[Rfam]
RNA sequence: UCCAGCGUGUGGCUCCACACGGCCCGCUCGUCCGGCGGCUCGGUGCCCGCGUGGUCGCCCUCGCCGAGGGUGCCGAGCACGAGGCGGUCGCCGUACGAGCCGUGCUGGAACCUGGUGACCCGGCCGUCCGCGAUCAGGAUGAUCUCGUCGGCCGGCCGUCCGGCCCGUGCGAUCGUGUCGCCGGGGGCGUACUCCCGCUGCUCGAACAGCCCCGCCAGGGCGUCGAGCAGGCGGUCGUCGUCGAGCCCGUGGAGCGGCGGCAGCUCGGUCAGGCUCGGCGGCGCCACCCGCACCCGGGCGCCGGUACGCGAGAAGCCCACCUUGCCGCCGCCGACCAUGUAGGUGAGCCGCCGGUUCACCCGGUAGGUGCCGGCGGUGUCCACCCAUGGGAGCAUCCGCAGCAGCCAGCGGGAGGAGAUCUCCCGCAUCUGCGGAGGCGUCUUGGUCGUCGUGGCGAGCUUCCGCGCCGCGGCGGUAUCCAGGCUCAGCCGCUGAUCCGACUC
Numbered sequence: 001u002c003c004a005g006c007g008u009g010u011g012g013c014u015c016c017a018c019a020c021g022g023c024c025c026g027c028u029c030g031u032c033c034g035g036c037g038g039c040u041c042g043g044u045g046c047c048c049g050c051g052u053g054g055u056c057g058c059c060c061u062c063g064c065c066g067a068g069g070g071u072g073c074c075g076a077g078c079a080c081g082a083g084g085c086g087g088u089c090g091c092c093g094u095a096c097g098a099g100c101c102g103u104g105c106u107g108g109a110a111c112c113u114g115g116u117g118a119c120c121c122g123g124c125c126g127u128c129c130g131c132g133a134u135c136a137g138g139a140u141g142a143u144c145u146c147g148u149c150g151g152c153c154g155g156c157c158g159u160c161c162g163g164c165c166c167g168u169g170c171g172a173u174c175g176u177g178u179c180g181c182c183g184g185g186g187g188c189g190u191a192c193u194c195c196c197g198c199u200g201c202u203c204g205a206a207c208a209g210c211c212c213c214g215c216c217a218g219g220g221c222g223u224c225g226a227g228c229a230g231g232c233g234g235u236c237g238u239c240g241u242c243g244a245g246c247c248c249g250u251g252g253a254g255c256g257g258c259g260g261c262a263g264c265u266c267g268g269u270c271a272g273g274c275u276c277g278g279c280g281g282c283g284c285c286a287c288c289c290g291c292a293c294c295c296g297g298g299c300g301c302c303g304g305u306a307c308g309c310g311a312g313a314a315g316c317c318c319a320c321c322u323u324g325c326c327g328c329c330g331c332c333g334a335c336c337a338u339g340u341a342g343g344u345g346a347g348c349c350g351c352c353g354g355u356u357c358a359c360c361c362g363g364u365a366g367g368u369g370c371c372g373g374c375g376g377u378g379u380c381c382a383c384c385c386a387u388g389g390g391a392g393c394a395u396c397c398g399c400a401g402c403a404g405c406c407a408g409c410g411g412g413a414g415g416a417g418a419u420c421u422c423c424c425g426c427a428u429c430u431g432c433g434g435a436g437g438c439g440u441c442u443u444g445g446u447c448g449u450c451g452u453g454g455c456g457a458g459c460u461u462c463c464g465c466g467c468c469g470c471g472g473c474g475g476u477a478u479c480c481a482g483g484c485u486c487a488g489c490c491g492c493u494g495a496u497c498c499g500a501c502u503c
Stems, first nucleotide, its partner, number of pairs: 007385001009383004015378001018324002021321002026318001029315001031313002033310002035307001037305001039303001042302008052229001055226003059222001061220001062108001072100001074099001077096001079094003116217002119214001123210002126207002130201003137194001141192001146189002152184005157175002161171001163170002231291004237285001239283004246278002251276001253275003258267002326339002348376007357369004387425004391419001393417001395415001397412001399410001401409001431470004436465001439462001442458002445455002471502002474497003480491001482489001
About this RNA:
A member of the RNA family "Saccharopolyspora sRNA 350" from Nonomuraea sp. WAC 01424, 503 nucleotides long. Lineage of the source: Bacteria > Actinomycetota > Actinomycetes > Streptosporangiales > Nonomuraea. For this family Rfam cites "Prediction and characterization of small non-coding RNAs related to secondary metabolites in Saccharopolyspora erythraea" (Liu et al., PLoS One, 2013). Its family is annotated with regulation of secondary metabolite biosynthetic process in the Gene Ontology. It is annotated as an antisense RNA.